[Rfam]
RNA sequence: UGGGCUGGUUUAGGUAGUCUCAUGUUGUUGGGCUAUUUUUGUGUCUCCCACAACACAAAACUGCCUUGAUUACCAC
Numbered sequence: 001u002g003g004g005c006u007g008g009u010u011u012a013g014g015u016a017g018u019c020u021c022a023u024g025u026u027g028u029u030g031g032g033c034u035a036u037u038u039u040u041g042u043g044u045c046u047c048c049c050a051c052a053a054c055a056c057a058a059a060a061c062u063g064c065c066u067u068g069a070u071u072a073c074c075a076c
Base pairs, nucleotide, nucleotide: 003074004073006072007071008070009069010068012066013065014064015063016062017061018060020058023055024054025053026052027051028050030048031047032046
RNA: mir-196 microRNA precursor family